[Rfam]
RNA sequence: UUUUAUACUAAUCGGAAUUACCUGAAAUUUGGAGCGUGUGUUCAUCAAAAAUAGGUGAAUCUACGAAAAAUAUCAAAAAAAUAUUUUACAUGAAAAACAUCGACCAAAAUACCCUUGACAAGUUUCAGGGGUAUUUUGGUCAAUUUAUUUUUCUCGAAUUAUUUUUUUUAUAUUUUUAUUUGGUGCGCUUCAUUAAGAUGUACAUAUGCUCCAAAUUUCAGGUCAUUCCGAUUUGUAGAAAA
Numbered sequence: 001u002u003u004u005a006u007a008c009u010a011a012u013c014g015g016a017a018u019u020a021c022c023u024g025a026a027a028u029u030u031g032g033a034g035c036g037u038g039u040g041u042u043c044a045u046c047a048a049a050a051a052u053a054g055g056u057g058a059a060u061c062u063a064c065g066a067a068a069a070a071u072a073u074c075a076a077a078a079a080a081a082u083a084u085u086u087u088a089c090a091u092g093a094a095a096a097a098c099a100u101c102g103a104c105c106a107a108a109a110u111a112c113c114c115u116u117g118a119c120a121a122g123u124u125u126c127a128g129g130g131g132u133a134u135u136u137u138g139g140u141c142a143a144u145u146u147a148u149u150u151u152u153c154u155c156g157a158a159u160u161a162u163u164u165u166u167u168u169u170a171u172a173u174u175u176u177u178a179u180u181u182g183g184u185g186c187g188c189u190u191c192a193u194u195a196a197g198a199u200g201u202a203c204a205u206a207u208g209c210u211c212c213a214a215a216u217u218u219c220a221g222g223u224c225a226u227u228c229c230g231a232u233u234u235g236u237a238g239a240a241a242a
Stems, first nucleotide, its partner, number of pairs: 001242004006237003010233009020223015036207006043200003061182001063180001066177008075168006097146001099144002102141013117124002